[Rfam]
RNA sequence: GGUUUCCUUUGGUAUAAAUCCAAUCAUCUCAACUGGAGAUGAGAAGCAACUCCCCAUUGGUAGCAAAUGGUUAUCCAUUAAGCGGGGGAAUGG
Numbered sequence: 001g002g003u004u005u006c007c008u009u010u011g012g013u014a015u016a017a018a019u020c021c022a023a024u025c026a027u028c029u030c031a032a033c034u035g036g037a038g039a040u041g042a043g044a045a046g047c048a049a050c051u052c053c054c055c056a057u058u059g060g061u062a063g064c065a066a067a068u069g070g071u072u073a074u075c076c077a078u079u080a081a082g083c084g085g086g087g088g089a090a091u092g093g
Stems, first nucleotide, its partner, number of pairs: 009023004052087004056078002059075006
This 93-nucleotide RNA sequence from Meconopsis racemosa belongs to the Rfam family "Plastid-rps12 3UTR RNA". The base pairs follow the family's consensus structure, which was predicted with LocARNA. By type it is a cis-regulatory element. Rfam describes the family as follows. Plastid rpl20 is a non-coding RNA (ncRNA) recognised in plastids. It was found in the three prime untranslated region (3UTR) of rps12 gene, its 3UTR location sugest a role in transcript maduration. A reference for the family is Richter et al. (2023), "Retrograde signaling in plants: A critical review focusing on the GUN pathway and beyond", Plant Commun.